[Rfam]
RNA sequence: CUUGAGGGAGCCGAGCCACAGCGGGCGGUUCUCCGGGCGGUUCUGGCCGUAUGCGGCGAUGACCGCCUGGGCCUC
Numbered sequence: 001c002u003u004g005a006g007g008g009a010g011c012c013g014a015g016c017c018a019c020a021g022c023g024g025g026c027g028g029u030u031c032u033c034c035g036g037g038c039g040g041u042u043c044u045g046g047c048c049g050u051a052u053g054c055g056g057c058g059a060u061g062a063c064c065g066c067c068u069g070g071g072c073c074u075c
Stems, first nucleotide, its partner, number of pairs: 016024002031071003038065002044059001047056003
RNA: ASpks TB sRNA